[Rfam]
The record is a 76-nucleotide sequence from Catenulispora acidiphila, which matches "6C RNA" in Rfam.

RNA sequence: CACGGCCCGGCUCCUCCCCCCCGAGCCUGGUCGUGGAGAAGACCCCCGCUCUCCCCCCCGGCGGGGGUCUUCACUU
Number, nucleotide and partner (000 for none) at each position: 001c000002a034003c033004g032005g031006c030007c029008c000009g027010g026011c025012u024013c023014c000015u000016c000017c000018c000019c000020c000021c000022c000023g013024a012025g011026c010027c009028u000029g007030g006031u005032c004033g003034u002035g000036g000037a000038g072039a071040a070041g069042a068043c067044c066045c065046c064047c063048g062049c061050u060051c000052u000053c000054c000055c000056c000057c000058c000059c000060g050061g049062c048063g047064g046065g045066g044067g043068u042069c041070u040071u039072c038073a000074c000075u000076u000
Gene Ontology term of the family: sporulation. Taxonomically the source falls in Catenulispora acidiphila (Bacteria, Bacillati, Actinomycetes, Catenulisporales).